Rfam assigns this 184-nucleotide sequence from Serratia symbiotica to the family "Manganese Mn2+ riboswitch aptamer (yybP-ykoY)". A search with the family's covariance model found it, with a score of 58 bits. Rfam's curators write: This RNA was originally discovered in E. coli during a large scale screen and was named SraF. The family was later found to exist upstream of related families of protein genes in many bacteria, including the the yybP and ykoK genes in B. subtilis. The specific functions of these proteins are unknown, but this structured RNA element may be involved in their genetic regulation as a riboswitch. A reference for the family is Price et al. (2015), "Mn(2+)-sensing mechanisms of yybP-ykoY orphan riboswitches", Mol Cell.
RNA sequence: UGCAUCGUCAUUGGGGAGUAGCCGGUUUCUGGUCAAUCAGCCAGAAACGCCCGUAUCAACAUACUCGUUUCACCUUAAGAAACGUGGUGCGGGCAGCCAGCCAGGUUGGCGAGACCAUAGACACGUAAUUCCGUCGUAAGGUUGGGGAUGGGUUACGUGUGUAUGGAGCCGCCCAGCCGAGGCU
Numbered sequence: 001u002g003c004a005u006c007g008u009c010a011u012u013g014g015g016g017a018g019u020a021g022c023c024g025g026u027u028u029c030u031g032g033u034c035a036a037u038c039a040g041c042c043a044g045a046a047a048c049g050c051c052c053g054u055a056u057c058a059a060c061a062u063a064c065u066c067g068u069u070u071c072a073c074c075u076u077a078a079g080a081a082a083c084g085u086g087g088u089g090c091g092g093g094c095a096g097c098c099a100g101c102c103a104g105g106u107u108g109g110c111g112a113g114a115c116c117a118u119a120g121a122c123a124c125g126u127a128a129u130u131c132c133g134u135c136g137u138a139a140g141g142u143u144g145g146g147g148a149u150g151g152g153u154u155a156c157g158u159g160u161g162u163a164u165g166g167a168g169c170c171g172c173c174c175a176g177c178c179g180a181g182g183c184u
Stems, first nucleotide, its partner, number of pairs: 025048006049094010066084005099184003
Dot-bracket structure: ........................((((((............))))))((((((((((.......(((((.........)))))))))))))))....(((................................................................................)))